[Rfam]
RNA: MIR6274 microRNA precursor family
RNA sequence: GGAUAAUAUUAUUUUGCUAUCUCUGACCAAUAAUGCAGUAAUAUGUGAAAAAGUUAUCUCGCAUGUUAUUGCGCUAUUGGUCAAGAAUAGUAAAAAGUGCUAUACCU
Numbered sequence: 001g002g003a004u005a006a007u008a009u010u011a012u013u014u015u016g017c018u019a020u021c022u023c024u025g026a027c028c029a030a031u032a033a034u035g036c037a038g039u040a041a042u043a044u045g046u047g048a049a050a051a052a053g054u055u056a057u058c059u060c061g062c063a064u065g066u067u068a069u070u071g072c073g074c075u076a077u078u079g080g081u082c083a084a085g086a087a088u089a090g091u092a093a094a095a096a097g098u099g100c101u102a103u104a105c106c107u
Stems, first nucleotide, its partner, number of pairs: 002106001004104002012095009022085001024083009034073015050057001